[Rfam]
RNA sequence: GCAGACUCACUCUGUUCCUUGCUGCUCCGUCCAGCCUGGUACUUUUUCUGUCUGCUACACUGACUGCAGAGUGGAACUUCCACCGCCCUCGCUGUAGGCUGGUGUUUUCAUAUUCUGCUACACACUG
Numbered sequence: 001g002c003a004g005a006c007u008c009a010c011u012c013u014g015u016u017c018c019u020u021g022c023u024g025c026u027c028c029g030u031c032c033a034g035c036c037u038g039g040u041a042c043u044u045u046u047u048c049u050g051u052c053u054g055c056u057a058c059a060c061u062g063a064c065u066g067c068a069g070a071g072u073g074g075a076a077c078u079u080c081c082a083c084c085g086c087c088c089u090c091g092c093u094g095u096a097g098g099c100u101g102g103u104g105u106u107u108u109c110a111u112a113u114u115c116u117g118c119u120a121c122a123c124a125c126u127g
Base pairs, nucleotide, nucleotide: 001055002054003053004052005051006050014042015041017039018038022034023033024032066118067117068116069115070114071113072112073108074107075106076105077104081101082100
Rfam assigns this 127-nucleotide RNA sequence from Anguilla anguilla to the family "Small nucleolar RNA SNORA77". ACA63 (SNORA77) is a member of the H/ACA class of snoRNAs that guide the sites of modification of uridines to pseudouridines. This snoRNA was identified by computational screening and its expression in mouse experimentally verified by Northern blot and primer extension analysis. ACA63 is proposed to guide the pseudouridylation of 18S rRNA U814. By type it is an H/ACA-box small nucleolar RNA.